[Rfam]
RNA sequence: GCCUAUGAUGAUAUUAUCCAAUUAAUUGAGAUGUAGUGGAACUGAGACCCUGUUUACAGGGAGAACCCCUUGGUGAAGCUAUAUUUCAAAUGACAUUAAUGGAUCUCACUGAGGC
Number, nucleotide and partner (000 for none) at each position: 001g115002c114003c113004u000005a000006u000007g000008a000009u000010g000011a000012u000013a000014u000015u000016a000017u000018c000019c000020a000021a000022u000023u000024a000025a000026u000027u000028g000029a000030g000031a000032u000033g000034u000035a000036g000037u000038g000039g000040a000041a000042c000043u000044g000045a000046g000047a000048c061049c060050c059051u058052g057053u000054u000055u000056a000057c052058a051059g050060g049061g048062a000063g000064a000065a000066c000067c000068c000069c000070u000071u000072g000073g000074u000075g000076a000077a000078g000079c000080u000081a000082u000083a000084u000085u000086u000087c000088a000089a000090a000091u000092g000093a000094c000095a000096u000097u000098a000099a000100u000101g000102g000103a000104u000105c000106u000107c000108a000109c000110u000111g000112a000113g003114g002115c001

A member of the RNA family "Small nucleolar RNA Z278" from Papaver nudicaule, 115 nucleotides long. The match comes from Rfam's covariance-model search (51 bits). Rfam's curators write: snoZ278 is a C/D box small nucleolar RNA. Its methylation guide targets have not been reported. The family has 7 seed sequences and 1,130 matches in Rfam 15.1. By type it is a C/D-box small nucleolar RNA. The family's consensus secondary structure was predicted with PFOLD.